c-di-GMP-I riboswitch aptamer: a 99-nucleotide RNA sequence from Trichloromonas acetexigens. The family has 155 seed sequences and 5,092 matches in Rfam 15.1. Pairs were carried over by alignment from the consensus structure, which is taken from published work. The match comes from Rfam's covariance-model search (68 bits).
[Rfam]
RNA sequence: GAAAACAAAAGGCAAACCAUCCGAAAGGGUGGGACGCAAAGCCACUGGCCUAACUUCCCGGACGACGGUCGCGGAGAACAGGGCGGCAGGGUUGCACUC
Numbered sequence: 001g002a003a004a005a006c007a008a009a010a011g012g013c014a015a016a017c018c019a020u021c022c023g024a025a026a027g028g029g030u031g032g033g034a035c036g037c038a039a040a041g042c043c044a045c046u047g048g049c050c051u052a053a054c055u056u057c058c059c060g061g062a063c064g065a066c067g068g069u070c071g072c073g074g075a076g077a078a079c080a081g082g083g084c085g086g087c088a089g090g091g092u093u094g095c096a097c098u099c
Stems, first nucleotide, its partner, number of pairs: 012037002017032006040093004045089003048084003055078003